RNA: 5' ureB small RNA
RNA sequence: UUCUUGGGCCUGCUGCGGCGCUAUGAAGUGGAUGUGCGUGUCGAUACCGCCGGCGGUCGCGAUCAGGUGCUCGCCGGAGAUCACCUCGGUGCCCGGGCCGAUCACCAGCUCGGGGUGCACGCCGCUCUGCAGGCGCGGGUUGCCGGCCUUGCCGACGGCGGUGAUGAAGCCGUCCUUGACGCCGAUGUCGCCCUUGACCACGCCGAGCACCGCGUCCAGCACGAUCACGUUGGUGAUCACCAGGUCCAGGGCGCCCUGGAGGCUGGUGGCGGCCGGGUCCUGGGCCAUGCCGUCCCGGAU
Numbered sequence: 001u002u003c004u005u006g007g008g009c010c011u012g013c014u015g016c017g018g019c020g021c022u023a024u025g026a027a028g029u030g031g032a033u034g035u036g037c038g039u040g041u042c043g044a045u046a047c048c049g050c051c052g053g054c055g056g057u058c059g060c061g062a063u064c065a066g067g068u069g070c071u072c073g074c075c076g077g078a079g080a081u082c083a084c085c086u087c088g089g090u091g092c093c094c095g096g097g098c099c100g101a102u103c104a105c106c107a108g109c110u111c112g113g114g115g116u117g118c119a120c121g122c123c124g125c126u127c128u129g130c131a132g133g134c135g136c137g138g139g140u141u142g143c144c145g146g147c148c149u150u151g152c153c154g155a156c157g158g159c160g161g162u163g164a165u166g167a168a169g170c171c172g173u174c175c176u177u178g179a180c181g182c183c184g185a186u187g188u189c190g191c192c193c194u195u196g197a198c199c200a201c202g203c204c205g206a207g208c209a210c211c212g213c214g215u216c217c218a219g220c221a222c223g224a225u226c227a228c229g230u231u232g233g234u235g236a237u238c239a240c241c242a243g244g245u246c247c248a249g250g251g252c253g254c255c256c257u258g259g260a261g262g263c264u265g266g267u268g269g270c271g272g273c274c275g276g277g278u279c280c281u282g283g284g285c286c287a288u289g290c291c292g293u294c295c296c297g298g299a300u
Stems, first nucleotide, its partner, number of pairs: 001299002004297001006295003011163006017075004029052003033049002036047001038045002056068003076153002080149001084145001089143003092139004096134001098132001103129002107126002110124001112122001170283003175277004180272001182269002193229001195227002205220001231265003238258002243255002